[Rfam]
RNA sequence: UUCUUAUCUCGAGAGGUGGAGGGACUGGCCCUAGGAAACCUCGGCAGCGGACUAUUAAAGUACUGUGCCAAUUCCAGUAGCGAUUUGCUUGAAGAUAAGAA
Number, nucleotide and partner (000 for none) at each position: 001u101002u100003c099004u098005u097006a096007u095008c094009u000010c000011g000012a000013g042014a041015g040016g039017u038018g000019g000020a000021g031022g030023g029024a000025c077026u076027g075028g074029c023030c022031c021032u000033a000034g000035g000036a000037a000038a017039c016040c015041u014042c013043g069044g068045c067046a066047g000048c065049g064050g000051a061052c060053u059054a000055u000056u000057a000058a000059a053060g052061u051062a000063c000064u049065g048066u046067g045068c044069c043070a000071a000072u000073u093074c028075c027076a026077g025078u000079a089080g088081c087082g086083a000084u000085u000086u082087g081088c080089u079090u000091g000092a000093a073094g008095a007096u006097a005098a004099g003100a002101a001
Rfam assigns this 101-nucleotide RNA sequence from Priestia filamentosa to the family "SAM riboswitch aptamer (S box leader)".